[Rfam]
RNA: mir-219 microRNA precursor family
Nucleotides: 070
Stems, first nucleotide, its partner, number of pairs: 002069006010061003014058005021051004026046006
Number, partner (000 for none) and nucleotide at each position: 001000u002069c003068c004067g005066g006065c007064a008000c009000u010061g011060a012059u013000u014058g015057u016056c017055c018054a019000a020000a021051c022050g023049c024048a025000a026046u027045u028044c029043u030042u031041g032000u033000g034000u035000c036000g037000u038000g039000c040000c041031c042030a043029a044028g045027a046026a047000c048024u049023g050022u051021g052000u053000g054018u055017g056016g057015g058014c059012a060011u061010c062000u063000c064007u065006g066005u067004u068003g069002g070000a